Annotation
This 82-nucleotide sequence from Deinococcus puniceus belongs to the Rfam family "tRNA". Rfam classes the family as a transfer RNA. Lineage of the source: Bacteria > Deinococcota > Deinococci > Deinococcaceae > Deinococcus. Pairs were carried over by alignment from the consensus structure, which is taken from published work. About the family: Transfer RNA (tRNA) molecules are approximately 80 nucleotides in length. Gene Ontology term of the family: triplet codon-amino acid adaptor activity.
[Rfam]
RNA sequence: GCGGGGAUGGCGGAAUUGGUAGACGCGCCAGAUUUAGGAUCUGGUUCCGGAAGGAGUGAGGGUUCAAGUCCCUUUUCUCGCA
Number, nucleotide and partner (000 for none) at each position: 001g081002c080003g079004g078005g077006g076007a075008u000009g000010g026011c025012g024013g000014a000015a000016u000017u000018g000019g000020u000021a000022g000023a000024c012025g011026c010027g000028c044029c043030a042031g041032a040033u000034u000035u000036a000037g000038g000039a000040u032041c031042u030043g029044g028045u000046u000047c000048c000049g000050g000051a000052a000053g000054g000055a000056g000057u000058g074059a073060g072061g071062g070063u000064u000065c000066a000067a000068g000069u000070c062071c061072c060073u059074u058075u007076u006077c005078u004079c003080g002081c001082a000